[Rfam]
The family of this 69-nucleotide RNA from Fukomys damarensis is "mir-8/mir-141/mir-200 microRNA precursor family".
RNA sequence: GUGGGCAUCUUAUCGGACAGUGCUGGAUUUCUUGGCUUGACUCUAACACUGUCUGGUAACGAUGUUCAA
Numbered sequence: 001g002u003g004g005g006c007a008u009c010u011u012a013u014c015g016g017a018c019a020g021u022g023c024u025g026g027a028u029u030u031c032u033u034g035g036c037u038u039g040a041c042u043c044u045a046a047c048a049c050u051g052u053c054u055g056g057u058a059a060c061g062a063u064g065u066u067c068a069a
Base pairs, nucleotide, nucleotide: 002068003067004066005065006064007063008062009061010059011058012057013056014055015054016053017052018051019050020049021048022047024045025044026043027042